[Rfam]
RNA sequence: GCCUGUAGUCCCAGCUGCCGGGGAGGCUGAGCCCGCCGGAUCGCUUGAGCCCAGGAGUUCUGGGCUGCAGUGCGCUAUGCCGAGCGGGUGUCCGCGCUAAGGCCGGCAUCAAUAUGGUGAUCCCCGGGGAGCUCGGGGUCACCAGGUUGCCUAAGGAGGGGUGAACCGGCCCAGGUCGGAAACGGAGCAGGUCAAAACUCCCGUGCCGGUCAGUAGUGGGAUCGCGCCUGUGAAUAGGCACUGCAGCGUAGCCUGGGCAAUACAGAGAGACGCGGGCUCUU
Number, nucleotide and partner (000 for none) at each position: 001g000002c000003c000004u000005g000006u000007a000008g000009u024010c023011c022012c000013a000014g000015c000016u000017g000018c000019c000020g000021g000022g011023g010024a009025g000026g000027c000028u000029g279030a278031g277032c276033c275034c274035g273036c272037c000038g000039g000040a000041u268042c267043g000044c265045u264046u000047g000048a000049g258050c257051c256052c255053a254054g253055g252056a000057g000058u000059u000060c251061u250062g249063g000064g247065c246066u245067g244068c243069a242070g241071u240072g239073c000074g000075c237076u236077a235078u234079g000080c232081c000082g000083a000084g231085c230086g229087g228088g227089u226090g225091u224092c220093c219094g000095c218096g217097c216098u215099a214100a000101g211102g210103c209104c208105g207106g206107c205108a204109u203110c149111a148112a147113u146114a000115u144116g143117g142118u141119g140120a139121u138122c137123c136124c135125c000126g133127g132128g000129g000130a000131g000132c127133u126134c000135g124136g123137g122138g121139u120140c119141a118142c117143c116144a115145g000146g113147u112148u111149g110150c156151c155152u000153a000154a000155g151156g150157a000158g201159g200160g199161g198162u197163g000164a000165a000166c000167c000168g193169g192170c191171c190172c000173a000174g000175g000176u185177c184178g183179g000180a000181a000182a000183c178184g177185g176186a000187g000188c000189a000190g171191g170192u169193c168194a000195a000196a000197a162198c161199u160200c159201c158202c000203g109204u108205g107206c106207c105208g104209g103210u102211c101212a000213g000214u099215a098216g097217u096218g095219g093220g092221a000222u000223c000224g091225c090226g089227c088228c087229u086230g085231u084232g080233a000234a078235u077236a076237g075238g000239c072240a071241c070242u069243g068244c067245a066246g065247c064248g000249u062250a061251g060252c055253c054254u053255g052256g051257g050258c049259a000260a000261u000262a000263c000264a045265g044266a000267g042268a041269g000270a000271c000272g036273c035274g034275g033276g032277c031278u030279c029280u000281u000
Rfam assigns this 281-nucleotide RNA from Tinamus guttatus to the family "Metazoan signal recognition particle RNA". Rfam links the family to the GO terms signal recognition particle, endoplasmic reticulum targeting and SRP-dependent cotranslational protein targeting to membrane, signal sequence recognition. Its Rfam clan is "SRP clan". The base pairs follow the family's consensus structure, which is taken from published work.